[Rfam]
The record is a 73-nucleotide RNA sequence from Sediminicoccus sp. KRV36, which matches "tRNA" in Rfam. The match comes from Rfam's covariance-model search (59 bits). NCBI's taxonomy places the organism under Bacteria, Pseudomonadati, Acetobacterales, Roseomonadaceae, Sediminicoccus. By type it is a transfer RNA.

RNA sequence: GCGGUCGUAGCUCAGUUGGCAGAGCGCCAGGUUGUGGUCUUGGAUGUCGCGGGUUCGAGCCCCGUCGAUCGCC
Numbered sequence: 001g002c003g004g005u006c007g008u009a010g011c012u013c014a015g016u017u018g019g020c021a022g023a024g025c026g027c028c029a030g031g032u033u034g035u036g037g038u039c040u041u042g043g044a045u046g047u048c049g050c051g052g053g054u055u056c057g058a059g060c061c062c063c064g065u066c067g068a069u070c071g072c073c
Stems, first nucleotide, its partner, number of pairs: 001072007010025004027043005049065005